[Rfam]
The family of this 81-nucleotide RNA from Oryzias latipes is "mir-15 microRNA precursor family". The family is grouped with related families in Rfam's "mir-15 clan". From the family's description: This family represents the related mir-15a and mir-15b sequences. In humans miR-15a and miR-16 are clustered within 0.5 kb at 13q14. This region has been shown to be deleted in more than half of B cell chronic lymphocytic leukaemias (CLL). A search with the family's covariance model found it, with a score of 58 bits.
Nucleotides: 081
Stems, first nucleotide, its partner, number of pairs: 001081006016066009026056003030052004035047002
Number, partner (000 for none) and nucleotide at each position: 001081c002080c003079a004078g005077g006076g007000g008000g009000c010000g011000c012000u013000c014000u015000a016066g017065c018064a019063g020062c021061a022060c023059a024058u025000c026056a027055u028054g029000u030052u031051u032050u033049g034000c035047a036046g037000g038000u039000g040000u041000g042000a043000u044000c045000a046036u047035u048000a049033c050032a051031a052030a053000u054028c055027a056026u057000g058024a059023u060022g061021u062020g063019c064018u065017g066016c067000c068000u069000c070000u071000g072000u073000g074000a075000g076006c077005u078004c079003u080002g081001g
Background:
Its family is annotated with miRNA-mediated post-transcriptional gene silencing and RISC complex in the Gene Ontology.